[Rfam]
RNA: Eukaryotic large subunit ribosomal RNA, nucleotides 2931 to 3301
Organism: Gracilariopsis chorda
RNA sequence: GAAAGGUUGUCGCGGCAGUAACUUAAGGCAGUACGAGAGGAACGCUUAAUUCGGAUCUCUGGCACAUGCAGCUGCGGGAGGCCGCAGUGCUGCGACGCUACCGUCCGAACGAUUAGAAAGGCUGAGAGAGUCUAAGCCUGGAUCGGUUCUGCUCAGCGACGACUCUGAAUUUCUGCACAUGACGGCGCCGUCCGUCUAACCGCGCCCACUUUUUUUUGUUGGCGCGGUCAGCACCAUAUCCAACUCUUUGUCUGUUUGUUGCAGAAGUGGAAUAUCCUGCAGAUGACCGGAAUGGGACCGGAGUGUGUAAGCGCUUGAGUAGUCUUUGUUACUGCGAUUGGCUGAGCAUGUCCGUUGUUCUUUUCAUUCGU
Numbered sequence: 001g002a003a004a005g006g007u008u009g010u011c012g013c014g015g016c017a018g019u020a021a022c023u024u025a026a027g028g029c030a031g032u033a034c035g036a037g038a039g040g041a042a043c044g045c046u047u048a049a050u051u052c053g054g055a056u057c058u059c060u061g062g063c064a065c066a067u068g069c070a071g072c073u074g075c076g077g078g079a080g081g082c083c084g085c086a087g088u089g090c091u092g093c094g095a096c097g098c099u100a101c102c103g104u105c106c107g108a109a110c111g112a113u114u115a116g117a118a119a120g121g122c123u124g125a126g127a128g129a130g131u132c133u134a135a136g137c138c139u140g141g142a143u144c145g146g147u148u149c150u151g152c153u154c155a156g157c158g159a160c161g162a163c164u165c166u167g168a169a170u171u172u173c174u175g176c177a178c179a180u181g182a183c184g185g186c187g188c189c190g191u192c193c194g195u196c197u198a199a200c201c202g203c204g205c206c207c208a209c210u211u212u213u214u215u216u217u218g219u220u221g222g223c224g225c226g227g228u229c230a231g232c233a234c235c236a237u238a239u240c241c242a243a244c245u246c247u248u249u250g251u252c253u254g255u256u257u258g259u260u261g262c263a264g265a266a267g268u269g270g271a272a273u274a275u276c277c278u279g280c281a282g283a284u285g286a287c288c289g290g291a292a293u294g295g296g297a298c299c300g301g302a303g304u305g306u307g308u309a310a311g312c313g314c315u316u317g318a319g320u321a322g323u324c325u326u327u328g329u330u331a332c333u334g335c336g337a338u339u340g341g342c343u344g345a346g347c348a349u350g351u352c353c354g355u356u357g358u359u360c361u362u363u364u365c366a367u368u369c370g371u
Stems, first nucleotide, its partner, number of pairs: 006163008016151003021051001023049005052107005060100003067094005072087006110145002119139005171266007270369004275291003279287001294361005300353003304348002311342002319335005